[Rfam]
RNA sequence: UAGCCGGUGAAAGUCCGGUCAGGGUAAUCACCAAGGAGCCCUGUAGCUUGGAUGUCUACGUAUGGAGAAAUCUGUGCGUAGAAGCGCAUCGACAAAAGUACCUGUCAGAGACAGGGCGAGCAAGAUACCAGGCCGUAACAUCA
Dot-bracket structure: ...................(((((..............))))).......(((((((((((...((....))...))))))....))))).......(..(((((.....))))).)..((.............)).......